[Rfam]
RNA: L19-Flavobacteria ribosomal protein leader
Organism: Phoenix dactylifera
RNA sequence: CAACCUCUGAUAAAAAAUAUGGAUGUUG
Numbered sequence: 001c002a003a004c005c006u007c008u009g010a011u012a013a014a015a016a017a018u019a020u021g022g023a024u025g026u027u028g
Base pairs, nucleotide, nucleotide: 001028002027003026004025008023010020011019012018